Overview: Shown here is a 52-nucleotide RNA sequence from Solanum tuberosum, a member of the family "MIR1886 microRNA precursor family". Gene Ontology terms of the family: RISC complex and miRNA-mediated post-transcriptional gene silencing. The source organism's lineage runs through Eukaryota, Viridiplantae, Magnoliopsida, Solaneae and Solanum. The family's consensus secondary structure was predicted with RNAalifold. The match comes from Rfam's covariance-model search (67 bits).

RNA sequence: UGAGAUGCAAUCGGCGUUUGGACAUGCGAGUUCACGUCGAUUUCAUCUCAUG
Dot-bracket structure: (((((((.((((((((((((......)))....))))))))).)))))))..